[Rfam]
RNA: mir-5697 microRNA precursor family
RNA sequence: AGGCUGUCUCAUGAAGAUGGGUGGCGGUGUGGACUGCCACCCAUCUUCAUGAGACAGCCUGA
Number, nucleotide and partner (000 for none) at each position: 001a060002g059003g058004c057005u056006g055007u054008c053009u052010c051011a050012u000013g048014a047015a046016g045017a044018u043019g042020g041021g040022u039023g000024g000025c000026g038027g037028u036029g000030u000031g000032g000033a000034c000035u000036g028037c027038c026039a022040c021041c020042c019043a018044u017045c016046u015047u014048c013049a000050u011051g010052a009053g008054a007055c006056a005057g004058c003059c002060u001061g000062a000